[Rfam]
This 178-nucleotide RNA sequence from Streptococcus varani belongs to the Rfam family "Group II catalytic intron D1-D4-3". Rfam describes the family as follows. Group II introns are found in rRNA, tRNA and mRNA of organelles in fungi, plants and protists, and also in mRNA in bacteria.

RNA sequence: ACUAUCGCGAGGUAGCGGGGAGAGGAAGGGAUAGCGAAAUCGUGGCUCUACGAACAGAAACGUGAUAUUAAGGCGUAUAUAGCGGAUGAGGGGGCUGAAAACUCUAAAGUCCAAAUAGGUAGUCGUAACCUAUAUGCGUAAAUCACGAGAGUAAUUGAAUACGGGCUAAGGUCGUUGU
Numbered sequence: 001a002c003u004a005u006c007g008c009g010a011g012g013u014a015g016c017g018g019g020g021a022g023a024g025g026a027a028g029g030g031a032u033a034g035c036g037a038a039a040u041c042g043u044g045g046c047u048c049u050a051c052g053a054a055c056a057g058a059a060a061c062g063u064g065a066u067a068u069u070a071a072g073g074c075g076u077a078u079a080u081a082g083c084g085g086a087u088g089a090g091g092g093g094g095c096u097g098a099a100a101a102c103u104c105u106a107a108a109g110u111c112c113a114a115a116u117a118g119g120u121a122g123u124c125g126u127a128a129c130c131u132a133u134a135u136g137c138g139u140a141a142a143u144c145a146c147g148a149g150a151g152u153a154a155u156u157g158a159a160u161a162c163g164g165g166c167u168a169a170g171g172u173c174g175u176u177g178u
Stems, first nucleotide, its partner, number of pairs: 002015005028178001030176003035170001040164005045152005061147006073139003077135006084112004090105004